[Rfam]
RNA: Fungal signal recognition particle RNA
RNA sequence: UACCUGUAACGGGUCCAAAUUUCAGAAGAUAGGCCGUAAUCUCACACGUGCCUCCCAAGGCUGUACUCUAUCAGGAGCCCAGUUCGAGUCCGGUGGUGGUCGUUUCACUCGCUUAGGUAACUAGCGAUGCUGAUCGACCUUGAGCAAUGAAUACAAUUAGACGAGGGAAGCAAUUCUGCAGUCAGGUAUUCACCAUUGGACGGCGGCGCUGGAUUACUCUAGUUAGGGUUGGGAGGUGUGAGUGAGGUGGCUGUUCGACUGAUUUUU
Numbered sequence: 001u002a003c004c005u006g007u008a009a010c011g012g013g014u015c016c017a018a019a020u021u022u023c024a025g026a027a028g029a030u031a032g033g034c035c036g037u038a039a040u041c042u043c044a045c046a047c048g049u050g051c052c053u054c055c056c057a058a059g060g061c062u063g064u065a066c067u068c069u070a071u072c073a074g075g076a077g078c079c080c081a082g083u084u085c086g087a088g089u090c091c092g093g094u095g096g097u098g099g100u101c102g103u104u105u106c107a108c109u110c111g112c113u114u115a116g117g118u119a120a121c122u123a124g125c126g127a128u129g130c131u132g133a134u135c136g137a138c139c140u141u142g143a144g145c146a147a148u149g150a151a152u153a154c155a156a157u158u159a160g161a162c163g164a165g166g167g168a169a170g171c172a173a174u175u176c177u178g179c180a181g182u183c184a185g186g187u188a189u190u191c192a193c194c195a196u197u198g199g200a201c202g203g204c205g206g207c208g209c210u211g212g213a214u215u216a217c218u219c220u221a222g223u224u225a226g227g228g229u230u231g232g233g234a235g236g237u238g239u240g241a242g243u244g245a246g247g248u249g250g251c252u253g254u255u256c257g258a259c260u261g262a263u264u265u266u267u
Stems, first nucleotide, its partner, number of pairs: 002014003019265001022262004028256002032252003036248001042245004047240009066228002069225002072222001074220004079212005084206003088201009098139001100137003103133002106129001109127005115122002140144001148192007158185001160183003167176003